The record is a 106-nucleotide sequence from Caldibacillus thermoamylovorans, which matches "SAM riboswitch aptamer (S box leader)" in Rfam. Lineage of the source: Bacteria > Bacilli > Caryophanales > Bacillaceae > Caldibacillus.
RNA sequence: AUCUUAUCAAGAGAGGUUGAGGGACUGGCCCGAUGACGCCUCAGCAACCAGUCAUUUUUUGACCACGGUGCUAAUUCCAGCAGGUGAAAUACCUGAAAGAUAAGAA
Numbered sequence: 001a002u003c004u005u006a007u008c009a010a011g012a013g014a015g016g017u018u019g020a021g022g023g024a025c026u027g028g029c030c031c032g033a034u035g036a037c038g039c040c041u042c043a044g045c046a047a048c049c050a051g052u053c054a055u056u057u058u059u060u061g062a063c064c065a066c067g068g069u070g071c072u073a074a075u076u077c078c079a080g081c082a083g084g085u086g087a088a089a090u091a092c093c094u095g096a097a098a099g100a101u102a103a104g105a106a
Base pairs, nucleotide, nucleotide: 002105003104004103005102006101007100008099013042014041015040016039017038021031022030023029025080026079027078028077043072044071045070046069048068049067051063052062053061076098081095082094083093084092085091086090